Rfam assigns this 95-nucleotide RNA sequence from Arthrobacter sp. MYb227 to the family "SAM riboswitch aptamer (S box leader)". Lineage of the source: Bacteria > Bacillati > Actinomycetes > Micrococcaceae > Arthrobacter. About the family: The SAM riboswitch is found upstream of a number of genes which code for proteins involved in methionine or cysteine biosynthesis in Gram-positive bacteria. It scores 56 bits against the family's covariance model.

[Rfam]
RNA sequence: ACACCAUCCAGAGCGACUGAGAGACCUGGCUCGUUGACGUCGCAGCAACCACCUCCGUAAUUGGAGACCGGUGCUACCGCCAGGACCGAUGGAGA
Number, nucleotide and partner (000 for none) at each position: 001a000002c094003a000004c092005c091006a090007u089008c088009c000010a000011g000012a000013g043014c042015g041016a040017c039018u000019g000020a000021g032022a031023g030024a000025c000026c083027u082028g081029g080030c023031u022032c021033g000034u000035u000036g000037a000038c000039g017040u016041c015042g014043c013044a075045g074046c073047a072048a000049c071050c070051a000052c000053c066054u065055c064056c000057g000058u000059a000060a000061u000062u000063g000064g055065a054066g053067a000068c000069c000070g050071g049072u047073g046074c045075u044076a000077c000078c000079g087080c029081c028082a027083g026084g000085a000086c000087c079088g008089a007090u006091g005092g004093a000094g002095a000